The record is a 109-nucleotide RNA from Miscanthus lutarioriparius, which matches "MIR5565 microRNA precursor family" in Rfam. NCBI's taxonomy places the organism under Eukaryota, Liliopsida, Andropogonodae, Saccharinae, Miscanthus. Gene Ontology terms of the family: RISC complex and miRNA-mediated post-transcriptional gene silencing.
RNA sequence: GCACACGAAUUCACCCCAAUCCACAUGGUUUGGGAGGAAUUGAGGUGGAACUUAAACUAAAUUUCAUCUCAAUCCCUUCCAAGCCAUAUGGAUUGGGGUGAAUUUGUGU
Numbered sequence: 001g002c003a004c005a006c007g008a009a010u011u012c013a014c015c016c017c018a019a020u021c022c023a024c025a026u027g028g029u030u031u032g033g034g035a036g037g038a039a040u041u042g043a044g045g046u047g048g049a050a051c052u053u054a055a056a057c058u059a060a061a062u063u064u065c066a067u068c069u070c071a072a073u074c075c076c077u078u079c080c081a082a083g084c085c086a087u088a089u090g091g092a093u094u095g096g097g098g099u100g101a102a103u104u105u106g107u108g109u
Stems, first nucleotide, its partner, number of pairs: 004108011016096008025087008035077003039073005045067003